[Rfam]
RNA sequence: UGGGGCUGAGGUAGUAGAUUGGAUAGUUGUGGGGUAUGUGCCCUCCCUCUGAGUUGUGGGGUAUGUGCCCUCCCUCUGAGAUAACUAUGCAAUCUACUGUCUUUCCUAA
Numbered sequence: 001u002g003g004g005g006c007u008g009a010g011g012u013a014g015u016a017g018a019u020u021g022g023a024u025a026g027u028u029g030u031g032g033g034g035u036a037u038g039u040g041c042c043c044u045c046c047c048u049c050u051g052a053g054u055u056g057u058g059g060g061g062u063a064u065g066u067g068c069c070c071u072c073c074c075u076c077u078g079a080g081a082u083a084a085c086u087a088u089g090c091a092a093u094c095u096a097c098u099g100u101c102u103u104u105c106c107u108a109a
Base pairs, nucleotide, nucleotide: 001109003107004106005105008103009102010101011100012099013098014097015096016095017094018093019092020091021090023088024087025086026085027084028083029082030081
Dot-bracket structure: (.(((..((((((((((((((.((((((((..................................................)))))))).)))))))))))))).))).)
Rfam assigns this 109-nucleotide RNA sequence from Anguilla anguilla to the family "let-7 microRNA precursor family". From the family's description: This family represents the microRNAs (miRNA) let-7 and mir-98. let-7 was identified from a study of developmental timing in C. elegans, and was later shown to be part of a much larger class of non-coding RNAs termed miRNAs. NCBI's taxonomy places the organism under Eukaryota, Chordata, Neopterygii, Anguilliformes, Anguilla. The match comes from Rfam's covariance-model search (62 bits). A reference for the family is Rougvie (2001), "Control of developmental timing in animals", Nat Rev Genet.